[Rfam]
RNA sequence: ACAGUCCCUGUAAACAUCCUACACUCAGCUUUAGUCCAGCAAAAAGGCUGAGAGGGGGGUGUUUGCUUUGACUGA
Numbered sequence: 001a002c003a004g005u006c007c008c009u010g011u012a013a014a015c016a017u018c019c020u021a022c023a024c025u026c027a028g029c030u031u032u033a034g035u036c037c038a039g040c041a042a043a044a045a046g047g048c049u050g051a052g053a054g055g056g057g058g059g060u061g062u063u064u065g066c067u068u069u070g071a072c073u074g075a
Base pairs, nucleotide, nucleotide: 002074003073004072005071006070010066011065012064013063014062015061016060017059018058019057020056022054024052025051026050027049028048029047030046
Shown here is a 75-nucleotide sequence from Electrophorus electricus, a member of the family "mir-30 microRNA precursor family". Lineage of the source: Eukaryota > Actinopteri > Ostariophysi > Gymnotidae > Electrophorus. From the family's description: This family consists of the mammalian microRNA (miRNA) precursor mir-30a. Animal miRNAs are transcribed as ~70nt precursors and subsequently processed by the Dicer enzyme to give a ~22nt product. In this case the mature sequence comes from both the 3' (miR-30) and 5' (mir-97-6) arms of the precursor. The extents of the hairpin precursors are not generally known and are estimated based on hairpin prediction. A search with the family's covariance model found it, with a score of 58 bits.